[Rfam]
RNA sequence: AGCCUCAUUCCUUGAGCAUGGGCACAGUUUAUCAUGGUGUCCAAAAUUGAUAAAUGUGGCUAAAUUGAGACAGGUUAUGCUUCCAUCACAGUAAAUUUAUUGCAGUGGUGACAAUGAGACCUGUAACAUUU
Numbered sequence: 001a002g003c004c005u006c007a008u009u010c011c012u013u014g015a016g017c018a019u020g021g022g023c024a025c026a027g028u029u030u031a032u033c034a035u036g037g038u039g040u041c042c043a044a045a046a047u048u049g050a051u052a053a054a055u056g057u058g059g060c061u062a063a064a065u066u067g068a069g070a071c072a073g074g075u076u077a078u079g080c081u082u083c084c085a086u087c088a089c090a091g092u093a094a095a096u097u098u099a100u101u102g103c104a105g106u107g108g109u110g111a112c113a114a115u116g117a118g119a120c121c122u123g124u125a126a127c128a129u130u131u
Stems, first nucleotide, its partner, number of pairs: 002060003006056003019043007070124005084110006
RNA: Small nucleolar RNA SNORA1